Bacterial RNase P class A: a 471-nucleotide RNA from Pseudanabaena sp. lw0831.
Ribonuclease P (RNase P) is a ubiquitous endoribonuclease, found in archaea, bacteria and eukarya as well as chloroplasts and mitochondria. Its best characterised activity is the generation of mature 5'-ends of tRNAs by cleaving the 5'-leader elements of precursor-tRNAs.
The organism belongs to Pseudanabaena, within Bacteria.
It scores 247 bits against the family's covariance model.
Gene Ontology terms of the family: ribonuclease P activity, tRNA processing and dimeric ribonuclease P complex.

RNA sequence: GAGAGUAAGCGUGCGGUUGCGAAAUUUGUCUCAAAAUUAACGAAAGGCUAUUUCGAGUACAAGUUUUGAGGAAAGUCCGGGCUUCCACGAAGAUCAGGCUGCUGGAUAACGCCCAGUGCGAGCGAUCGUGAGGAUAGUGCCACAGAAAAAUACCGCCUGUUGUAGACAUAGCGCGAAGCGCUAUGUCUACAACAGGUAAGGGUGCAAAGGUGCGUUAAGAGCGCACCAGCAGAGUCGUGAGGCUCUGGCUCGGUAAACCCCAGUUGGAAGCAAGGCGAGAGGAUACAAGUGUUGCGAUCUUCAGUUGAUCUUGUGUCCGUUACUUAAUGGGGUUGCUUAGUGAAAGCUAGGCGAUCGCAAUUAAGUGUGUGCCGCAUGAGGUAUUUGGCAACAAAUAUCCCAGAUAGAUAACCGCUAAGGCAGUUGUUAAAACUCCUGAAACAGAACCCGGCUUAUGUCUUACUCUUCCUA
Numbered sequence: 001g002a003g004a005g006u007a008a009g010c011g012u013g014c015g016g017u018u019g020c021g022a023a024a025u026u027u028g029u030c031u032c033a034a035a036a037u038u039a040a041c042g043a044a045a046g047g048c049u050a051u052u053u054c055g056a057g058u059a060c061a062a063g064u065u066u067u068g069a070g071g072a073a074a075g076u077c078c079g080g081g082c083u084u085c086c087a088c089g090a091a092g093a094u095c096a097g098g099c100u101g102c103u104g105g106a107u108a109a110c111g112c113c114c115a116g117u118g119c120g121a122g123c124g125a126u127c128g129u130g131a132g133g134a135u136a137g138u139g140c141c142a143c144a145g146a147a148a149a150a151u152a153c154c155g156c157c158u159g160u161u162g163u164a165g166a167c168a169u170a171g172c173g174c175g176a177a178g179c180g181c182u183a184u185g186u187c188u189a190c191a192a193c194a195g196g197u198a199a200g201g202g203u204g205c206a207a208a209g210g211u212g213c214g215u216u217a218a219g220a221g222c223g224c225a226c227c228a229g230c231a232g233a234g235u236c237g238u239g240a241g242g243c244u245c246u247g248g249c250u251c252g253g254u255a256a257a258c259c260c261c262a263g264u265u266g267g268a269a270g271c272a273a274g275g276c277g278a279g280a281g282g283a284u285a286c287a288a289g290u291g292u293u294g295c296g297a298u299c300u301u302c303a304g305u306u307g308a309u310c311u312u313g314u315g316u317c318c319g320u321u322a323c324u325u326a327a328u329g330g331g332g333u334u335g336c337u338u339a340g341u342g343a344a345a346g347c348u349a350g351g352c353g354a355u356c357g358c359a360a361u362u363a364a365g366u367g368u369g370u371g372c373c374g375c376a377u378g379a380g381g382u383a384u385u386u387g388g389c390a391a392c393a394a395a396u397a398u399c400c401c402a403g404a405u406a407g408a409u410a411a412c413c414g415c416u417a418a419g420g421c422a423g424u425u426g427u428u429a430a431a432a433c434u435c436c437u438g439a440a441a442c443a444g445a446a447c448c449c450g451g452c453u454u455a456u457g458u459c460u461u462a463c464u465c466u467u468c469c470u471a
Stems, first nucleotide, its partner, number of pairs: 001467009011456001013415006020068009073454003077451005082270004097265005102116004117131001118129004132260002137258002139254003153201002155197019209227006229249001230247007274373004284364001287361001380399008